[Rfam]
RNA sequence: UUCUUGCAGACGCGAGAGUCUCUGCUUGCCUAUGGAUGAUGUUUAUGGUAUCCCAGGUCGAGGCGGCUCUGU
Dot-bracket structure: .....(.((((......)))).)((.(((((..(..((...............))..)..))))))).....
Hepatitis C virus stem-loop SL2531 and SL2549AU: a 72-nucleotide sequence. A reference for the family is Pirakitikulr et al. (2016), "The Coding Region of the HCV Genome Contains a Network of Regulatory RNA Structures", Mol Cell. Rfam classes the family as a cis-regulatory element. Pairs were carried over by alignment from the consensus structure, which was predicted with RNAfold.